[Rfam]
RNA sequence: UAAAUUUAAAUAUCCCGUUUAAUCGCUCAUCUAUUAAAAUUGAUAGUAGAAUGUAGUUUCAUACCCGGGAGAAAUUU
Numbered sequence: 001u002a003a004a005u006u007u008a009a010a011u012a013u014c015c016c017g018u019u020u021a022a023u024c025g026c027u028c029a030u031c032u033a034u035u036a037a038a039a040u041u042g043a044u045a046g047u048a049g050a051a052u053g054u055a056g057u058u059u060c061a062u063a064c065c066c067g068g069g070a071g072a073a074a075u076u077u
Stems, first nucleotide, its partner, number of pairs: 013070005020063002025057003028053003031049006
The record is a 77-nucleotide part of an RNA from Saccharomyces paradoxus, which matches "Small nucleolar RNA snR86" in Rfam. The family's consensus secondary structure was predicted with WAR. Its family is annotated with RNA processing and nucleolus in the Gene Ontology. The sequence is in the family's curated seed alignment.